[Rfam]
RNA sequence: CUGCCCGAGGGGCGCUGCAGUGCAUGGCUUGCCAUGUACGAGGCUCGGGCAGACGGUCGCAAUCGCAACGGCGCCCAUUCCCC
Numbered sequence: 001c002u003g004c005c006c007g008a009g010g011g012g013c014g015c016u017g018c019a020g021u022g023c024a025u026g027g028c029u030u031g032c033c034a035u036g037u038a039c040g041a042g043g044c045u046c047g048g049g050c051a052g053a054c055g056g057u058c059g060c061a062a063u064c065g066c067a068a069c070g071g072c073g074c075c076c077a078u079u080c081c082c083c
Base pairs, nucleotide, nucleotide: 002051003050004049005048006047007046008045021038022037023036024035025034026033
SAH (S-adenosyl-L-homocysteine) riboswitch aptamer: an 83-nucleotide RNA from Modicisalibacter xianhensis. The family's consensus secondary structure is taken from published work.